[Rfam]
RNA sequence: ACAUUGGUUGACCACUAGCGAGGUAUAGAGUUCCUACGUGUAAUUAAUUUGUAGGAACUUCAUACCGUGCUCUUGGAUUAGCCGUA
Number, nucleotide and partner (000 for none) at each position: 001a000002c000003a000004u000005u000006g000007g000008u000009u000010g000011a000012c076013c075014a074015c000016u000017a071018g070019c069020g068021a000022g066023g065024u064025a063026u062027a000028g060029a059030g058031u057032u056033c055034c054035u053036a052037c051038g000039u000040g000041u000042a000043a000044u000045u000046a000047a000048u000049u000050u000051g037052u036053a035054g034055g033056a032057a031058c030059u029060u028061c000062a026063u025064a024065c023066c022067g000068u020069g019070c018071u017072c000073u000074u014075g013076g012077a000078u000079u000080a000081g000082c000083c000084g000085u000086a000
Overview
The record is an 86-nucleotide RNA sequence from Agrilus planipennis, which matches "mir-276 microRNA precursor family" in Rfam. NCBI's taxonomy places the organism under Eukaryota, Dicondylia, Coleoptera, Agrilinae, Agrilus. Rfam links the family to the GO terms miRNA-mediated post-transcriptional gene silencing and RISC complex. Rfam 15.1 lists 200 matches to the family in 170 species.